RNA: mir-35_2 microRNA precursor family
Organism: Caenorhabditis brenneri
RNA sequence: AGCUGAUUUCUCUACUGGUGAUAAGUCCGAUCAUAGUGUUUAUCACCGGGAGUAAAUCUGCUCU
Number, nucleotide and partner (000 for none) at each position: 001a062002g061003c060004u000005g058006a057007u056008u055009u054010c052011u051012c050013u049014a000015c000016u048017g047018g046019u045020g044021a043022u042023a041024a000025g000026u000027c000028c000029g000030a000031u000032c000033a000034u000035a000036g000037u000038g000039u000040u000041u023042a022043u021044c020045a019046c018047c017048g016049g013050g012051a011052g010053u000054a009055a008056a007057u006058c005059u000060g003061c002062u001063c000064u000